RNA sequence: CCUCUUGAGGGGAGUAGUCGCCCUUGCCUCGUGACCUUCGUCAUGGGCAAGGGGCGCGUGUCAACACACUUGGCGGUGACGCCAUGGCACGCGCGGCCGGUCGGCUU
Numbered sequence: 001c002c003u004c005u006u007g008a009g010g011g012g013a014g015u016a017g018u019c020g021c022c023c024u025u026g027c028c029u030c031g032u033g034a035c036c037u038u039c040g041u042c043a044u045g046g047g048c049a050a051g052g053g054g055c056g057c058g059u060g061u062c063a064a065c066a067c068a069c070u071u072g073g074c075g076g077u078g079a080c081g082c083c084a085u086g087g088c089a090c091g092c093g094c095g096g097c098c099g100g101u102c103g104g105c106u107u
Stems, first nucleotide, its partner, number of pairs: 022052008054094010071084005
Rfam assigns this 107-nucleotide sequence from Thiocapsa marina to the family "Manganese Mn2+ riboswitch aptamer (yybP-ykoY)".
Rfam links the family to the GO term manganese ion binding.
Rfam 15.1 lists 1,126 matches to the family in 1,062 species.
Rfam describes the family as follows. This RNA was originally discovered in E. coli during a large scale screen and was named SraF. The family was later found to exist upstream of related families of protein genes in many bacteria, including the the yybP and ykoK genes in B. subtilis. The specific functions of these proteins are unknown, but this structured RNA element may be involved in their genetic regulation as a riboswitch.
For this family Rfam cites "Mn(2+)-sensing mechanisms of yybP-ykoY orphan riboswitches" (Price et al., Mol Cell, 2015).
Taxonomically the source falls in Thiocapsa marina (Bacteria, Pseudomonadota, Chromatiaceae, Thiocapsa).